[Rfam]
RNA: Alphaproteobacterial sRNA ar9
Organism: Pseudochrobactrum saccharolyticum
RNA sequence: ACAACAGAGAGCAGGCUUAACUACUCUCUCACGCGGUCAAAGUCUUGGGAGGAUGCAACUCAGGCGCGGUAUUUCGCAGCCGCCUGUAACAAGGAAACGAGUUGGACGCGUAUUUUAUCAGCAAGGCUAACGCCUUGCUUUUUUUU
Numbered sequence: 001a002c003a004a005c006a007g008a009g010a011g012c013a014g015g016c017u018u019a020a021c022u023a024c025u026c027u028c029u030c031a032c033g034c035g036g037u038c039a040a041a042g043u044c045u046u047g048g049g050a051g052g053a054u055g056c057a058a059c060u061c062a063g064g065c066g067c068g069g070u071a072u073u074u075c076g077c078a079g080c081c082g083c084c085u086g087u088a089a090c091a092a093g094g095a096a097a098c099g100a101g102u103u104g105g106a107c108g109c110g111u112a113u114u115u116u117a118u119c120a121g122c123a124a125g126g127c128u129a130a131c132g133c134c135u136u137g138c139u140u141u142u143u144u145u146u
Base pairs, nucleotide, nucleotide: 001146003144004143009026010025011024013022014021032110033109034108035107042054043053044052045051057103058102059101060100061099063081064080065079066077067076068075083094084093085092120139121138122137123136124135125134126133127132